[Rfam]
Shown here is a 181-nucleotide sequence from Clostridium sp. CT7, a member of the family "Lysine riboswitch aptamer". NCBI's taxonomy places the organism under Bacteria, Bacillati, Bacillota, Eubacteriales, Clostridium. Its family is annotated with lysine biosynthetic process in the Gene Ontology. It scores 117 bits against the family's covariance model. Pairs were carried over by alignment from the consensus structure, which is taken from published work.
RNA sequence: ACCUUUUGUAGAGGUGCUUUAAGUUAAGAGUAACUGUUUGGAGUUGGCAAAUUAUGAUAAGCAGUGAAAGGGACUUUUAGCCGAAGCAAAUAAAUUGGCAAAUUUAUUCGCUGGCUUUUCACAAAAUAUGUGAAGGGUUGUCACUUAAUUGUCAUUAGGUAAGUGGAGCGCUACAAGGUAC
Numbered sequence: 001a002c003c004u005u006u007u008g009u010a011g012a013g014g015u016g017c018u019u020u021a022a023g024u025u026a027a028g029a030g031u032a033a034c035u036g037u038u039u040g041g042a043g044u045u046g047g048c049a050a051a052u053u054a055u056g057a058u059a060a061g062c063a064g065u066g067a068a069a070g071g072g073a074c075u076u077u078u079a080g081c082c083g084a085a086g087c088a089a090a091u092a093a094a095u096u097g098g099c100a101a102a103u104u105u106a107u108u109c110g111c112u113g114g115c116u117u118u119u120c121a122c123a124a125a126a127u128a129u130g131u132g133a134a135g136g137g138u139u140g141u142c143a144c145u146u147a148a149u150u151g152u153c154a155u156u157a158g159g160u161a162a163g164u165g166g167a168g169c170g171c172u173a174c175a176a177g178g179u180a181c
Stems, first nucleotide, its partner, number of pairs: 006176006016081003021076004033065008085112003089108008113139011141166007